This 104-nucleotide sequence from Brachypodium distachyon belongs to the Rfam family "MIR398 microRNA precursor family".
[Rfam]
RNA sequence: GAAGUUCCUGCAGGGUCGAAUUGGGAACACAUGAGAUGGAUGGUCCGCUGAGCUCUGAGCUCGAGCUCGGCCAUGUGUUCUCAGGUCGCCCCUGUUGGGUCUUC
Numbered sequence: 001g002a003a004g005u006u007c008c009u010g011c012a013g014g015g016u017c018g019a020a021u022u023g024g025g026a027a028c029a030c031a032u033g034a035g036a037u038g039g040a041u042g043g044u045c046c047g048c049u050g051a052g053c054u055c056u057g058a059g060c061u062c063g064a065g066c067u068c069g070g071c072c073a074u075g076u077g078u079u080c081u082c083a084g085g086u087c088g089c090c091c092c093u094g095u096u097g098g099g100u101c102u103u104c
Stems, first nucleotide, its partner, number of pairs: 007098002011094004017088003023082010

Lineage of the source: Eukaryota > Viridiplantae > Liliopsida > Stipodae > Brachypodium. The family has 14 seed sequences and 627 matches in Rfam 15.1. The match comes from Rfam's covariance-model search (63 bits).